[Rfam]
RNA sequence: UAUUUAAAAACGAAUAUCACUCAUAUAAUACCGAUAAUAUGGUUCGGAAGUAUCUACCGAAUGACCGAGAAUCAUUCGACUAUGAGUGGAAUUAUUAUAUUA
Numbered sequence: 001u002a003u004u005u006a007a008a009a010a011c012g013a014a015u016a017u018c019a020c021u022c023a024u025a026u027a028a029u030a031c032c033g034a035u036a037a038u039a040u041g042g043u044u045c046g047g048a049a050g051u052a053u054c055u056a057c058c059g060a061a062u063g064a065c066c067g068a069g070a071a072u073c074a075u076u077c078g079a080c081u082a083u084g085a086g087u088g089g090a091a092u093u094a095u096u097a098u099a100u101u102a
Base pairs, nucleotide, nucleotide: 018088019087020086021085022084023083024082025081029049031047032046033045034044058078059077060076061075062074063073064072
Dot-bracket structure: .................((((((((...(.((((.........)))).)........(((((((.......)))))))..))))))))..............